[Rfam]
RNA sequence: AUCCCUCGAGGAUAGAGGAAGCCGUCAGCAGGCGGCUGAUCGAGAAAUCGGUC
Numbered sequence: 001a002u003c004c005c006u007c008g009a010g011g012a013u014a015g016a017g018g019a020a021g022c023c024g025u026c027a028g029c030a031g032g033c034g035g036c037u038g039a040u041c042g043a044g045a046a047a048u049c050g051g052u053c
Stems, first nucleotide, its partner, number of pairs: 020037007

Record summary
A member of the RNA family "leuA-Halobacteria RNA" from Halolamina pelagica, 53 nucleotides long. The source organism's lineage runs through Archaea, Methanobacteriati, Methanobacteriota, Halobacteriales and Halolamina. The family's consensus secondary structure is taken from published work.